Shown here is a 168-nucleotide RNA sequence from Acetivibrio ethanolgignens, a member of the family "Clostridiales-1 RNA". The family's RNA type in Rfam is small RNA. The organism belongs to Acetivibrio, within Bacteria.
RNA sequence: UGAUGCCAGGGUCAAAAGGUCGAAACCCACAUGAGCUUGCUCAUAAGUGGGUGCAAGACCUUGGAACCCGCCCCGAUAUGAGCAUAAAAGUGGGAUGUAUAUCCCACGAUAUGCGAAUAUUGGGCAGGAUUGUGGGAGUGCGUAGCACGGAACAAUCCGUAGGCAUCA
Numbered sequence: 001u002g003a004u005g006c007c008a009g010g011g012u013c014a015a016a017a018g019g020u021c022g023a024a025a026c027c028c029a030c031a032u033g034a035g036c037u038u039g040c041u042c043a044u045a046a047g048u049g050g051g052u053g054c055a056a057g058a059c060c061u062u063g064g065a066a067c068c069c070g071c072c073c074c075g076a077u078a079u080g081a082g083c084a085u086a087a088a089a090g091u092g093g094g095a096u097g098u099a100u101a102u103c104c105c106a107c108g109a110u111a112u113g114c115g116a117a118u119a120u121u122g123g124g125c126a127g128g129a130u131u132g133u134g135g136g137a138g139u140g141c142g143u144a145g146c147a148c149g150g151a152a153c154a155a156u157c158c159g160u161a162g163g164c165a166u167c168a
Stems, first nucleotide, its partner, number of pairs: 001168007010068003016062006026051005031044005072124008082114004090107007127158007138148004